Group II catalytic intron D1-D4-4: a 138-nucleotide RNA from Selenihalanaerobacter shriftii.
RNA sequence: CGAUAGGUGAAAGUCCUAUCAGAGCAAAAGUCAAAACUCUGUAGUUGAAUGGCAAUAUAAUUGGGAAACCAGUUAUAUUGAAGUCCAUUAAUUAAGAUAUUUAUAAGGCAUCGAUUAAGCAUGCAGACUGUAACACCA
Numbered sequence: 001c002g003a004u005a006g007g008u009g010a011a012a013g014u015c016c017u018a019u020c021a022g023a024g025c026a027a028a029a030g031u032c033a034a035a036a037c038u039c040u041g042u043a044g045u046u047g048a049a050u051g052g053c054a055a056u057a058u059a060a061u062u063g064g065g066a067a068a069c070c071a072g073u074u075a076u077a078u079u080g081a082a083g084u085c086c087a088u089u090a091a092u093u094a095a096g097a098u099a100u101u102u103a104u105a106a107g108g109c110a111u112c113g114a115u116u117a118a119g120c121a122u123g124c125a126g127a128c129u130g131u132a133a134c135a136c137c138a
Stems, first nucleotide, its partner, number of pairs: 020041005048089005053080006062071001064069001096112003100108002116130002

Source information: Lineage of the source: Bacteria > Bacillati > Halanaerobiales > Halobacteroidaceae > Selenihalanaerobacter. The pairing is the family consensus, mapped onto this sequence. Its family is annotated with Group II intron splicing in the Gene Ontology. Group II introns are found in rRNA, tRNA and mRNA of organelles in fungi, plants and protists, and also in mRNA in bacteria.